This 178-nucleotide sequence from Nocardioides cavernaquae belongs to the Rfam family "c-di-AMP riboswitch aptamer (ydaO/yuaA leader)". This family represents a conserved RNA structure found upstream of the ydaO and yuaA genes in Bacillus subtilis and related genes in other bacteria. Taxonomically the source falls in Nocardioides (Bacteria, Actinomycetota, Actinomycetes, Nocardioidaceae).

RNA sequence: GACCGAGUACGCCGAGUCCUGCCCCGCGGUCGCGUUCCUUGUCAUCGACAUUGGGCAGGAGUGGGGGACCCACAGGUUCCACGCGGUCUCCGGAUCGCUCGGGGUGAAGCCACCUAGGUGGCGGGGCACUUUCCAGCUCUAACCCGACAGCUCACCUCACAGGCGUGGGAAAGGAAUA
Numbered sequence: 001g002a003c004c005g006a007g008u009a010c011g012c013c014g015a016g017u018c019c020u021g022c023c024c025c026g027c028g029g030u031c032g033c034g035u036u037c038c039u040u041g042u043c044a045u046c047g048a049c050a051u052u053g054g055g056c057a058g059g060a061g062u063g064g065g066g067g068a069c070c071c072a073c074a075g076g077u078u079c080c081a082c083g084c085g086g087u088c089u090c091c092g093g094a095u096c097g098c099u100c101g102g103g104g105u106g107a108a109g110c111c112a113c114c115u116a117g118g119u120g121g122c123g124g125g126g127c128a129c130u131u132u133c134c135a136g137c138u139c140u141a142a143c144c145c146g147a148c149a150g151c152u153c154a155c156c157u158c159a160c161a162g163g164c165g166u167g168g169g170a171a172a173g174g175a176a177u178a
Stems, first nucleotide, its partner, number of pairs: 010165004017060008061160006071101001102145003110121004124139004